[Rfam]
RNA sequence: CUGCCGCCACAACGGCUUCCUGGCGUGGCGGUCUAAAACUCAAUGGAGCA
Dot-bracket structure: ...(((((((..(([[[.[[))..))))))).............]]]]].
Numbered sequence: 001c002u003g004c005c006g007c008c009a010c011a012a013c014g015g016c017u018u019c020c021u022g023g024c025g026u027g028g029c030g031g032u033c034u035a036a037a038a039c040u041c042a043a044u045g046g047a048g049c050a
Stems, first nucleotide, its partner, number of pairs: 004031007013022002015049003019046002
The record is a 50-nucleotide sequence from Vannielia litorea, which matches "SAM/SAH riboswitch aptamer" in Rfam. Its family is annotated with regulation of gene expression and S-adenosylmethionine metabolic process in the Gene Ontology. Taxonomically the source falls in Vannielia (Bacteria, Pseudomonadota, Alphaproteobacteria, Paracoccaceae).